[Rfam]
RNA: Purine riboswitch aptamer
Organism: Clostridium acidisoli
RNA sequence: GUAAGAAUCUAAUAAACAACUCGUAUAUCCCUUGGAUUGGCAAGGAGUUUCUACCGGAAGCCGUAAAUUUCCGACUAUGAGUGAUUUUUAUGUAUAU
Numbered sequence: 001g002u003a004a005g006a007a008u009c010u011a012a013u014a015a016a017c018a019a020c021u022c023g024u025a026u027a028u029c030c031c032u033u034g035g036a037u038u039g040g041c042a043a044g045g046a047g048u049u050u051c052u053a054c055c056g057g058a059a060g061c062c063g064u065a066a067a068u069u070u071c072c073g074a075c076u077a078u079g080a081g082u083g084a085u086u087u088u089u090a091u092g093u094a095u096a097u
Stems, first nucleotide, its partner, number of pairs: 019082007030045005055073006